[Rfam]
RNA sequence: ACAAUGAUACUUCCGCCUUGCACGCGUCACUGCAUGGGGCGGCCACGAGAGAUCCUCGCGGGGGUGAGACUCCCAUGA
Number, nucleotide and partner (000 for none) at each position: 001a000002c000003a000004a000005u000006g000007a000008u000009a000010c000011u000012u075013c042014c041015g040016c039017c038018u037019u036020g035021c000022a000023c000024g000025c000026g000027u000028c000029a000030c000031u000032g000033c000034a000035u020036g019037g018038g017039g016040c015041g014042g013043c061044c060045a000046c000047g057048a056049g055050a000051g000052a000053u000054c000055c049056u048057c047058g000059c000060g044061g043062g074063g073064g072065u000066g000067a000068g000069a000070c000071u000072c064073c063074c062075a012076u000077g000078a000